A member of the RNA family "Molybdenum/Tungsten riboswitch aptamer (Moco RNA motif)" from Natronincola ferrireducens, 121 nucleotides long. NCBI's taxonomy places the organism under Bacteria, Clostridia, Peptostreptococcales, Natronincolaceae, Natronincola. The family's consensus secondary structure is taken from published work.
[Rfam]
RNA sequence: UAGGUGUCAAAUUUUCGAGUGAAAUAAUCUAAGGCUAGUAAAAGCUAAGAUUUUUUACCCUUGGGUAAAUAAAGAAAUUUAUUUGCCUCCCACUUUGGAAAGGAAAUUUGUGUUAAUAAAU
Dot-bracket structure: ...(......((((((..(((.((.((((...((((......))))..)))).)))))....(((((((((((....)))))))))))((......))...))))))......).......